Rfam assigns this 184-nucleotide sequence from Thermolongibacillus altinsuensis to the family "Lysine riboswitch aptamer". The organism belongs to Thermolongibacillus, within Bacteria. Pairs were carried over by alignment from the consensus structure, which is taken from published work.
[Rfam]
RNA sequence: CGAUGAGGUAGAGGUCGCAACUUUUAAGAGUACGUCGGACGAGGCGCAGAGAACGUCAAAGACUCCGGCGGAAAGGAAAAGUUGCCGAAGUUUGUCUAUGUUCUCUGCAUAGACAAGCUGGGGCUGUUUCCGAAUAGGGACAGCACUGCCACGUUGUUUAACAACGUGGAGCGCUAUCUUCACG
Numbered sequence: 001c002g003a004u005g006a007g008g009u010a011g012a013g014g015u016c017g018c019a020a021c022u023u024u025u026a027a028g029a030g031u032a033c034g035u036c037g038g039a040c041g042a043g044g045c046g047c048a049g050a051g052a053a054c055g056u057c058a059a060a061g062a063c064u065c066c067g068g069c070g071g072a073a074a075g076g077a078a079a080a081g082u083u084g085c086c087g088a089a090g091u092u093u094g095u096c097u098a099u100g101u102u103c104u105c106u107g108c109a110u111a112g113a114c115a116a117g118c119u120g121g122g123g124c125u126g127u128u129u130c131c132g133a134a135u136a137g138g139g140a141c142a143g144c145a146c147u148g149c150c151a152c153g154u155u156g157u158u159u160a161a162c163a164a165c166g167u168g169g170a171g172c173g174c175u176a177u178c179u180u181c182a183c184g
Stems, first nucleotide, its partner, number of pairs: 006179006017085009033070007089119012120147002123144008149169007
Rfam links the family to the GO term lysine biosynthetic process.
The match comes from Rfam's covariance-model search (144 bits).